The family of this 219-nucleotide sequence from Miscanthus lutarioriparius is "MIR6217 microRNA precursor family". Gene Ontology terms of the family: miRNA-mediated post-transcriptional gene silencing and RISC complex.

RNA sequence: UGGCUACAAAAUAACUUAUUCAGAGCCACUUUGAGUUACUUAUAAUUAAUAUGUUAAUUUAUGAGAUUAUAGUAACUCCUUGCUAGGUGGUUUACUAUAACUUUAUGGUAAAUAUCCUUAGUAACCCAACCAUCGUAAAUAUAUAUUGACAUUAUCGUAAAUUAGUAUAUAAAAUUAUCGUAAAUAGUGAUGGCUACAGAAUAACUUAUUUUGUAGCUG
Numbered sequence: 001u002g003g004c005u006a007c008a009a010a011a012u013a014a015c016u017u018a019u020u021c022a023g024a025g026c027c028a029c030u031u032u033g034a035g036u037u038a039c040u041u042a043u044a045a046u047u048a049a050u051a052u053g054u055u056a057a058u059u060u061a062u063g064a065g066a067u068u069a070u071a072g073u074a075a076c077u078c079c080u081u082g083c084u085a086g087g088u089g090g091u092u093u094a095c096u097a098u099a100a101c102u103u104u105a106u107g108g109u110a111a112a113u114a115u116c117c118u119u120a121g122u123a124a125c126c127c128a129a130c131c132a133u134c135g136u137a138a139a140u141a142u143a144u145a146u147u148g149a150c151a152u153u154a155u156c157g158u159a160a161a162u163u164a165g166u167a168u169a170u171a172a173a174a175u176u177a178u179c180g181u182a183a184a185u186a187g188u189g190a191u192g193g194c195u196a197c198a199g200a201a202u203a204a205c206u207u208a209u210u211u212u213g214u215a216g217c218u219g
Base pairs, nucleotide, nucleotide: 001219002218003217004216005215006214007213008212009211010210011209012208013207014206016204017203018202019201020200021199023197024195025194026193027192028191030189032187036183037182038181039180042178043177044176045175046174047173050169051168052167053166054165055164056163057162058161059160060159061158062157065156066155067154069152070151074146080138081137082136083135087133088132089131090130091129092128093123094122095121096120097119107117108116
Dot-bracket structure: ((((((((((((((.((((((.((((((.(.(...((((..((((((..(((((((((((((..(((.((...(.....((((...(((((((((((.........((.......)).)))))....)))))).)))).......)....)).))))))))))))))))...)))))).))))...).).))))).).)))))).))))))))))))))
The source organism's lineage runs through Eukaryota, Spermatophyta, Poales, Panicoideae and Miscanthus. The family has 2 seed sequences and 2,266 matches in Rfam 15.1.